A member of the RNA family "SAM riboswitch aptamer (S box leader)" from Lishizhenia tianjinensis, 109 nucleotides long. The organism belongs to Lishizhenia, within Bacteria.
RNA sequence: AACUUAUUAAGAAAGGAGGAGGGAAUGGCCCUAUGAUACCUUAGCAACCUUUCGAUUUCUAAUCGAUUUCGGUGCUAAUUCCAGUCUAUUUUAUAGAUGAAAAUAAGUA
Numbered sequence: 001a002a003c004u005u006a007u008u009a010a011g012a013a014a015g016g017a018g019g020a021g022g023g024a025a026u027g028g029c030c031c032u033a034u035g036a037u038a039c040c041u042u043a044g045c046a047a048c049c050u051u052u053c054g055a056u057u058u059c060u061a062a063u064c065g066a067u068u069u070c071g072g073u074g075c076u077a078a079u080u081c082c083a084g085u086c087u088a089u090u091u092u093a094u095a096g097a098u099g100a101a102a103a104u105a106a107g108u109a
Stems, first nucleotide, its partner, number of pairs: 002108007013042004021031003026083003043076004048072002052066004080101001087096001